[Rfam]
RNA sequence: CGUAUCGCGUUGGGAGAAGCCACGUCACUGUGGUGCCGAAGGAGCAACCGCCCCGGAAACUCUCAGGCAAAAGGACCAGCGCGAGGUU
Numbered sequence: 001c002g003u004a005u006c007g008c009g010u011u012g013g014g015a016g017a018a019g020c021c022a023c024g025u026c027a028c029u030g031u032g033g034u035g036c037c038g039a040a041g042g043a044g045c046a047a048c049c050g051c052c053c054c055g056g057a058a059a060c061u062c063u064c065a066g067g068c069a070a071a072a073g074g075a076c077c078a079g080c081g082c083g084a085g086g087u088u
Stems, first nucleotide, its partner, number of pairs: 006083008020033004035068003038064002042062003048056002
Glycine riboswitch aptamer: an 88-nucleotide RNA sequence from Martelella mediterranea. A search with the family's covariance model found it, with a score of 64 bits. Lineage of the source: Bacteria > Pseudomonadota > Alphaproteobacteria > Martelella > Martelella mediterranea.